[Rfam]
RNA sequence: ACGGAAUUACGAAAUAAACCUCAUAUAAAUUUGGAAAUACGGUCCAAAAGUUUCUACCUAGCAACCAUAAAUUGCUGGACUAUGAGGGAAAGUGAAAUACAU
Numbered sequence: 001a002c003g004g005a006a007u008u009a010c011g012a013a014a015u016a017a018a019c020c021u022c023a024u025a026u027a028a029a030u031u032u033g034g035a036a037a038u039a040c041g042g043u044c045c046a047a048a049a050g051u052u053u054c055u056a057c058c059u060a061g062c063a064a065c066c067a068u069a070a071a072u073u074g075c076u077g078g079a080c081u082a083u084g085a086g087g088g089a090a091a092g093u094g095a096a097a098u099a100c101a102u
Stems, first nucleotide, its partner, number of pairs: 019087007030048006058078007
RNA: Purine riboswitch aptamer
Organism: Bacillus sp. 165